Notes
c-di-AMP riboswitch aptamer (ydaO/yuaA leader): a 174-nucleotide RNA from Nakamurella flava. The pairing is the family consensus, mapped onto this sequence. Rfam links the family to the GO terms regulation of gene expression and cyclic-di-AMP binding. The match comes from Rfam's covariance-model search (60 bits).
RNA sequence: AAACAGGAAAGGCUUGGACAGCGACGGGGAAACCAACUUUGGCCGGCAGGCAGUUCGCCGGUCUUGGGGUGAAUCCGGCUCACGCCGGACGGGCAAUCCCCUCCACGUCCGGAGCUUGCGCUCCGGGCUGCCCGAACCCGACAGCUCACCUCGCAGGCGCAGCUAGGGGAAGAU
Numbered sequence: 001a002a003a004c005a006g007g008a009a010a011g012g013c014u015u016g017g018a019c020a021g022c023g024a025c026g027g028g029g030a031a032a033c034c035a036a037c038u039u040u041g042g043c044c045g046g047c048a049g050g051c052a053g054u055u056c057g058c059c060g061g062u063c064u065u066g067g068g069g070u071g072a073a074u075c076c077g078g079c080u081c082a083c084g085c086c087g088g089a090c091g092g093g094c095a096a097u098c099c100c101c102u103c104c105a106c107g108u109c110c111g112g113a114g115c116u117u118g119c120g121c122u123c124c125g126g127g128c129u130g131c132c133c134g135a136a137c138c139c140g141a142c143a144g145c146u147c148a149c150c151u152c153g154c155a156g157g158c159g160c161a162g163c164u165a166g167g168g169g170a171a172g173a174u
Stems, first nucleotide, its partner, number of pairs: 004021001025153005034066002067139003075088004091133004
The source organism's lineage runs through Bacteria, Bacillati, Actinomycetota, Nakamurellales and Nakamurella.